This 85-nucleotide RNA belongs to the Rfam family "skipping-rope RNA".
It is one of the family's seed sequences.
By type it is a small RNA.
RNA sequence: AAAUAUUGAGGACGGAACAGGCAGCCGUCACGCCAUACUUAUUAUGGUCUUAAAGAGAUGUAGGAGUGUCAACCUACCAAUAUUU
Numbered sequence: 001a002a003a004u005a006u007u008g009a010g011g012a013c014g015g016a017a018c019a020g021g022c023a024g025c026c027g028u029c030a031c032g033c034c035a036u037a038c039u040u041a042u043u044a045u046g047g048u049c050u051u052a053a054a055g056a057g058a059u060g061u062a063g064g065a066g067u068g069u070c071a072a073c074c075u076a077c078c079a080a081u082a083u084u085u
Base pairs, nucleotide, nucleotide: 001085002084003083004082005081006080007079008078011029012028013027014026015025020070021069022068023067031055032048033047034046035045036044037043060077061076062075063074064073